[Rfam]
RNA sequence: GAGUUGAAAUGAAUCUGUUUAUCUGAAUGUGUUUCUGCAGAAAUUUAGAAAAAGCUGGCAAUAGUAAAGCCAUGUUACAAGCCUUAAAGACAUUGAAAUGAUUAAGGUCCCUGAAAAUGGCUAUAAGA
Dot-bracket structure: .((..........(((((..................))))).............))............((((........(((((((..(........)..))))))).........)))).......
Small nucleolar RNA SNORA33: a 128-nucleotide RNA sequence from Diceros bicornis.
It scores 116 bits against the family's covariance model.
The family's consensus secondary structure was predicted with PFOLD.
About the family: ACA33 is a member of the H/ACA class of snoRNA that guide the sites of modification of uridines to pseudouridines.